[Rfam]
RNA: Small nucleolar RNA Z112
RNA sequence: AUCCCAUUGAGGAAUCUAUGACCUACGAUAGGAAGUGCCGUAUGACACUGUAAACAGCAGCUGCUUUUCUCCUUUGCUAGUGGCCAUCCUUCGACCAUAACCUUGGUGGUUUGGUCUGGGAUUGACAACCCUUGCAUCGUGUUUAAUUCAGCUGUGUGCGUGAUUUUAAAUGGGUCUCUGAGGGAU
Dot-bracket structure: (((((.....................................................................(((.(..(.(.((((...(((((.((((.....)))))))))..)))).)......)).))).............................................)))))